[Rfam]
RNA sequence: GAGCAUGGCAGUUGGACAGGCAUUCUGCGUCUCUUGAAAGAGCACGGAUUUAUCCGUGCCAUGCAACAUGAAUGAGAUGAGAAGUUCUCAGGGCUGCCAACCUUUCAGUUAAGGUUUUUGUGGUAGUAUAUUUCUUCUACAAUA
Numbered sequence: 001g002a003g004c005a006u007g008g009c010a011g012u013u014g015g016a017c018a019g020g021c022a023u024u025c026u027g028c029g030u031c032u033c034u035u036g037a038a039a040g041a042g043c044a045c046g047g048a049u050u051u052a053u054c055c056g057u058g059c060c061a062u063g064c065a066a067c068a069u070g071a072a073u074g075a076g077a078u079g080a081g082a083a084g085u086u087c088u089c090a091g092g093g094c095u096g097c098c099a100a101c102c103u104u105u106c107a108g109u110u111a112a113g114g115u116u117u118u119u120g121u122g123g124u125a126g127u128a129u130a131u132u133u134c135u136u137c138u139a140c141a142a143u144a
Stems, first nucleotide, its partner, number of pairs: 003064006021046001023044001025042002081137004093124002097120001099116006